Small nucleolar RNA SNORD111: an 82-nucleotide RNA from Pavo cristatus. A search with the family's covariance model found it, with a score of 54 bits. A reference for the family is Galardi et al. (2002), "Purified box C/D snoRNPs are able to reproduce site-specific 2'-O-methylation of target RNA in vitro", Mol Cell Biol. Its family is annotated with nucleolus and RNA processing in the Gene Ontology. The source organism's lineage runs through Eukaryota, Metazoa, Chordata, Saurischia and Pavo.
RNA sequence: CAGCCUGAAAUGAUGCUGUGAAUUCAUGUCUCUUCUCUGAGGUGUGUUGUGGAGACAACUGGAUGAAUUUCUGAUCAGGCUU
Numbered sequence: 001c002a003g004c005c006u007g008a009a010a011u012g013a014u015g016c017u018g019u020g021a022a023u024u025c026a027u028g029u030c031u032c033u034u035c036u037c038u039g040a041g042g043u044g045u046g047u048u049g050u051g052g053a054g055a056c057a058a059c060u061g062g063a064u065g066a067a068u069u070u071c072u073g074a075u076c077a078g079g080c081u082u
Stems, first nucleotide, its partner, number of pairs: 002081004